[Rfam]
Overview: Shown here is a 138-nucleotide RNA sequence from Firmicutes bacterium CAG:791, a member of the family "THF (Tetrahydrofolate) riboswitch aptamer". Tetrahydrofolate (THF) riboswitch was first reported for Ames et al. as an RNA motif in 5' untranslated (5'-UTR)regions of folate transport and biosynthesis genes in Firmicutes genomes. It scores 59 bits against the family's covariance model. Rfam 15.1 lists 747 matches to the family in 747 species.

RNA sequence: UGCAGAGUAGGAACAAAUGCGUUGGUCUGUAUCGGAAAUGGAUUCCGGAGAGACCUGUAGUGCUGCGGGAACAGGGAGUUGUCCCGCGGACGAAAGACAGCGAUGCUGUCUACGGUGUUGGUUCCGCAUCCCGCUGCU
Numbered sequence: 001u002g003c004a005g006a007g008u009a010g011g012a013a014c015a016a017a018u019g020c021g022u023u024g025g026u027c028u029g030u031a032u033c034g035g036a037a038a039u040g041g042a043u044u045c046c047g048g049a050g051a052g053a054c055c056u057g058u059a060g061u062g063c064u065g066c067g068g069g070a071a072c073a074g075g076g077a078g079u080u081g082u083c084c085c086g087c088g089g090a091c092g093a094a095a096g097a098c099a100g101c102g103a104u105g106c107u108g109u110c111u112a113c114g115g116u117g118u119u120g121g122u123u124c125c126g127c128a129u130c131c132c133g134c135u136g137c138u
Stems, first nucleotide, its partner, number of pairs: 002137004010125005016119004020114003060091002063089008074131003078127001095111006